[Rfam]
RNA sequence: UGACUCCUCCAUGUCUUGGAGUAGGUCACUGGGUGGAUCCUCUUGUUCCUCACAUGGGUCACUGAAUGGUUCCUCCACGUUUUCGAG
Numbered sequence: 001u002g003a004c005u006c007c008u009c010c011a012u013g014u015c016u017u018g019g020a021g022u023a024g025g026u027c028a029c030u031g032g033g034u035g036g037a038u039c040c041u042c043u044u045g046u047u048c049c050u051c052a053c054a055u056g057g058g059u060c061a062c063u064g065a066a067u068g069g070u071u072c073c074u075c076c077a078c079g080u081u082u083u084c085g086a087g
Stems, first nucleotide, its partner, number of pairs: 009085001011083001013081001015079001017077005024071005030065001032063005038058003
RNA: mir-432 microRNA precursor family
Organism: Peromyscus maniculatus